[Rfam]
RNA sequence: CCUGCCGUACAACCGGCAGUCACCUACGUUGGCAUGCAGCCUUGGUAACGAGACUGUGUGAAGCCCAACUGACAAUGUACUCCCCGCGCAAGCGGCGGUGCCCACCCGCGAGGGGGAGCACCGGAUACUGCCAGCACGCGGCGGUUGAGGGG
Numbered sequence: 001c002c003u004g005c006c007g008u009a010c011a012a013c014c015g016g017c018a019g020u021c022a023c024c025u026a027c028g029u030u031g032g033c034a035u036g037c038a039g040c041c042u043u044g045g046u047a048a049c050g051a052g053a054c055u056g057u058g059u060g061a062a063g064c065c066c067a068a069c070u071g072a073c074a075a076u077g078u079a080c081u082c083c084c085c086g087c088g089c090a091a092g093c094g095g096c097g098g099u100g101c102c103c104a105c106c107c108g109c110g111a112g113g114g115g116g117a118g119c120a121c122c123g124g125a126u127a128c129u130g131c132c133a134g135c136a137c138g139c140g141g142c143g144g145u146u147g148a149g150g151g152g
Stems, first nucleotide, its partner, number of pairs: 002019006028069005033060007041052004084095004096123004106113002127145006
Group II catalytic intron D1-D4-7: a 152-nucleotide sequence from Caenimonas sedimenti. Pairs were carried over by alignment from the consensus structure. A reference for the family is Lehmann and Schmidt (2003), "Group II introns: structure and catalytic versatility of large natural ribozymes", Crit Rev Biochem Mol Biol.